[Rfam]
RNA sequence: GCGCCUAUAGCUCAGUUGGUAGAGCAACACGUUUACACCGUGUGGGUCGGGAGUUCGAGUCUCUCUGGGCGCA
Number, nucleotide and partner (000 for none) at each position: 001g072002c071003g070004c069005c068006u067007a066008u000009a000010g025011c024012u023013c022014a000015g000016u000017u000018g000019g000020u000021a000022g013023a012024g011025c010026a000027a043028c042029a041030c040031g039032u000033u000034u000035a000036c000037a000038c000039c031040g030041u029042g028043u027044g000045g000046g000047u000048c000049g065050g064051g063052a062053g061054u000055u000056c000057g000058a000059g000060u000061c053062u052063c051064u050065c049066u007067g006068g005069g004070c003071g002072c001073a000